Notes
A member of the RNA family "Singlet oxygen resistance RNA X" from Thalassobius vesicularis, 72 nucleotides long. It scores 65 bits against the family's covariance model. Rfam's curators write: SorX (RSs2461)like SorY is a singlet oxygen induced sRNA that counteracts oxidative stress by targeting mRNA for a transporter in Rhodobacter. Lineage of the source: Bacteria > Pseudomonadati > Pseudomonadota > Roseobacteraceae > Thalassovita. The pairing is the family consensus, mapped onto this sequence. The family has 8 seed sequences and 528 matches in Rfam 15.1.
RNA sequence: ACCCGUCGCAUAUGCGGGCCCUCAUAUGCACCUCCCUGUUGGACUGACCCGGGCGCUGACCCGGGUCUUUUU
Numbered sequence: 001a002c003c004c005g006u007c008g009c010a011u012a013u014g015c016g017g018g019c020c021c022u023c024a025u026a027u028g029c030a031c032c033u034c035c036c037u038g039u040u041g042g043a044c045u046g047a048c049c050c051g052g053g054c055g056c057u058g059a060c061c062c063g064g065g066u067c068u069u070u071u072u
Stems, first nucleotide, its partner, number of pairs: 008029007047066007